[Rfam]
RNA sequence: CCUCCAUUUCUUGGCAUACAUGCUGUUGCUCAGUACUGGUGUAUGUAUGUUUGGAGGUAGAUGAAGCCAAUGCUAUGUCUUCGGUGCCGGCAUUGUCUCGUGUGCCGGUUCUAUCCUCAAUCGCUGGUACAUUC
Numbered sequence: 001c002c003u004c005c006a007u008u009u010c011u012u013g014g015c016a017u018a019c020a021u022g023c024u025g026u027u028g029c030u031c032a033g034u035a036c037u038g039g040u041g042u043a044u045g046u047a048u049g050u051u052u053g054g055a056g057g058u059a060g061a062u063g064a065a066g067c068c069a070a071u072g073c074u075a076u077g078u079c080u081u082c083g084g085u086g087c088c089g090g091c092a093u094u095g096u097c098u099c100g101u102g103u104g105c106c107g108g109u110u111c112u113a114u115c116c117u118c119a120a121u122c123g124c125u126g127g128u129a130c131a132u133u134c
Base pairs, nucleotide, nucleotide: 001057002056003055004054005053015045016044017043018042019041020040023038025036026035068126069125071123072122087108088107089106090105091104092103093102

This 134-nucleotide RNA from Gadus morhua belongs to the Rfam family "Small nucleolar RNA SNORA57". Its family is annotated with nucleolus and RNA processing in the Gene Ontology. For this family Rfam cites "Identification of 13 novel human modification guide RNAs" (Vitali et al., Nucleic Acids Res, 2003). U99 belongs to the H/ACA class of snoRNAs which are thought to guide the sites of modification of uridines to pseudouridines, the target for this family is unknown.